[Rfam]
RNA: Ribosomal protein L20 leader
RNA sequence: GAAAUUAAGAAGAAGCACCCGCUUCUCGCCUUAGUGAUAUUUAUGACUGGGCUUGAUAGAAAAAUUUCCUUAUUUAUAUAGGGAUAAUUGUUUAGGUGCGGGACUUUUUAAUAUUAAAAAGACUCGUUUUUUUUCGUUUUU
Numbered sequence: 001g002a003a004a005u006u007a008a009g010a011a012g013a014a015g016c017a018c019c020c021g022c023u024u025c026u027c028g029c030c031u032u033a034g035u036g037a038u039a040u041u042u043a044u045g046a047c048u049g050g051g052c053u054u055g056a057u058a059g060a061a062a063a064a065u066u067u068c069c070u071u072a073u074u075u076a077u078a079u080a081g082g083g084a085u086a087a088u089u090g091u092u093u094a095g096g097u098g099c100g101g102g103a104c105u106u107u108u109u110a111a112u113a114u115u116a117a118a119a120a121g122a123c124u125c126g127u128u129u130u131u132u133u134u135c136g137u138u139u140u141u
Stems, first nucleotide, its partner, number of pairs: 011026006028052003034047002037044002098127005104121007